c-di-GMP-I riboswitch aptamer: an 85-nucleotide sequence from Desulfosporosinus acididurans. The match comes from Rfam's covariance-model search (64 bits). Rfam describes the family as follows. GEMM was predicted in a large-scale screen for bacterial structured RNA regulatory elements. Gene Ontology term of the family: cyclic-di-GMP binding.
RNA sequence: UUGUGACAAAAGCAAACUUAGUGAAAAUUAAGGGCGCAAAGCUAUGGACCUUCCAGGUAAUGCUGAUGGUCGCCAAGCUUCCGGA
Numbered sequence: 001u002u003g004u005g006a007c008a009a010a011a012g013c014a015a016a017c018u019u020a021g022u023g024a025a026a027a028u029u030a031a032g033g034g035c036g037c038a039a040a041g042c043u044a045u046g047g048a049c050c051u052u053c054c055a056g057g058u059a060a061u062g063c064u065g066a067u068g069g070u071c072g073c074c075a076a077g078c079u080u081c082c083g084g085a
Stems, first nucleotide, its partner, number of pairs: 012037002017032006040079004045075003048070003055064002